[Rfam]
RNA sequence: AUUUUAUUGAAAGAUAGACUUUGUGAGGCCUAUAUUAAGCGCACUUUGGGACUCUCCCUUAGUGCUUUUUUGAUUUCU
Numbered sequence: 001a002u003u004u005u006a007u008u009g010a011a012a013g014a015u016a017g018a019c020u021u022u023g024u025g026a027g028g029c030c031u032a033u034a035u036u037a038a039g040c041g042c043a044c045u046u047u048g049g050g051a052c053u054c055u056c057c058c059u060u061a062g063u064g065c066u067u068u069u070u071u072g073a074u075u076u077c078u
Base pairs, nucleotide, nucleotide: 016078017077018076031073032070037067038066039065042064043063044062045061048058049057050056051055
Shown here is a 78-nucleotide RNA from Streptococcus pneumoniae, a member of the family "Streptococcus sRNA SpF01". Taxonomically the source falls in Streptococcus pneumoniae (Bacteria, Bacillati, Bacillota, Streptococcus). By type it is a small RNA. A reference for the family is Mann et al. (2012), "Control of virulence by small RNAs in Streptococcus pneumoniae", PLoS Pathog.